[Rfam]
RNA: Xanthine riboswitch aptamer (NMT1 RNA)
RNA sequence: UGUCUGAGUAGAAGCGGUCAGGGCCUUCGGGCCUGGGUCAUUGCUAGACAC
Numbered sequence: 001u002g003u004c005u006g007a008g009u010a011g012a013a014g015c016g017g018u019c020a021g022g023g024c025c026u027u028c029g030g031g032c033c034u035g036g037g038u039c040a041u042u043g044c045u046a047g048a049c050a051c
Base pairs, nucleotide, nucleotide: 005047007045008044009043010042015036019037021034022033023032024031025030